[Rfam]
RNA sequence: UGUUUCAAGCAGAAGCACCCGCUUCUCACCUGAUUGGCGCCAUUUAUGGCAGCUGCCGGGUAAGAUAACGUUAAAAGGCUAUUGAGGCCGAUUAUUCGUGUGGGUGGAUUAUGCGCCGACGCUUUUUUUAUUUG
Numbered sequence: 001u002g003u004u005u006c007a008a009g010c011a012g013a014a015g016c017a018c019c020c021g022c023u024u025c026u027c028a029c030c031u032g033a034u035u036g037g038c039g040c041c042a043u044u045u046a047u048g049g050c051a052g053c054u055g056c057c058g059g060g061u062a063a064g065a066u067a068a069c070g071u072u073a074a075a076a077g078g079c080u081a082u083u084g085a086g087g088c089c090g091a092u093u094a095u096u097c098g099u100g101u102g103g104g105u106g107g108a109u110u111a112u113g114c115g116c117c118g119a120c121g122c123u124u125u126u127u128u129u130a131u132u133u134g
Stems, first nucleotide, its partner, number of pairs: 011026006028061003036054003039050002099121003103117004108112001
RNA: Ribosomal protein L20 leader